Shown here is a 124-nucleotide RNA sequence from Shinella fusca, a member of the family "Alphaproteobacterial ar14". On this family, see Robledo et al., Environ Microbiol 2017: "A conserved alpha-proteobacterial small RNA contributes to osmoadaptation and symbiotic efficiency of rhizobia on legume roots". The organism belongs to Shinella, within Bacteria. By type it is a small RNA.
RNA sequence: AUCGGUCGGGCGACGAUCUCCUCCUCCCAACGUCCCCGACAGGAUUGGCGGCCCCUCCUCCUCCCAGGCUGCCGAUCGACAUCAGCAAAGCCCGCCGGACCUCCUCCCCCGGCGGGCUUUGUUU
Numbered sequence: 001a002u003c004g005g006u007c008g009g010g011c012g013a014c015g016a017u018c019u020c021c022u023c024c025u026c027c028c029a030a031c032g033u034c035c036c037c038g039a040c041a042g043g044a045u046u047g048g049c050g051g052c053c054c055c056u057c058c059u060c061c062u063c064c065c066a067g068g069c070u071g072c073c074g075a076u077c078g079a080c081a082u083c084a085g086c087a088a089a090g091c092c093c094g095c096c097g098g099a100c101c102u103c104c105u106c107c108c109c110c111g112g113c114g115g116g117c118u119u120u121g122u123u124u
Stems, first nucleotide, its partner, number of pairs: 007038004012034004043077010088119011